Shown here is an 86-nucleotide RNA from Salvia splendens, a member of the family "Small nucleolar RNA R21". On this family, see Barneche et al., J Mol Biol 2001: "Identification of 66 box C/D snoRNAs in Arabidopsis thaliana: extensive gene duplications generated multiple isoforms predicting new ribosomal RNA 2'-O-methylation sites". By type it is a C/D-box small nucleolar RNA. A search with the family's covariance model found it, with a score of 46 bits. Rfam links the family to the GO terms RNA processing and nucleolus.

RNA sequence: CAUCCCCAUGAUGAAUAUUUUCCAGAAUUCUAACGUUAAAAGUAGACUGAAAAUUCUUGAUGUGAAAGAAAUUUUUCUGAGGGAUG
Numbered sequence: 001c002a003u004c005c006c007c008a009u010g011a012u013g014a015a016u017a018u019u020u021u022c023c024a025g026a027a028u029u030c031u032a033a034c035g036u037u038a039a040a041a042g043u044a045g046a047c048u049g050a051a052a053a054u055u056c057u058u059g060a061u062g063u064g065a066a067a068g069a070a071a072u073u074u075u076u077c078u079g080a081g082g083g084a085u086g
Stems, first nucleotide, its partner, number of pairs: 001086006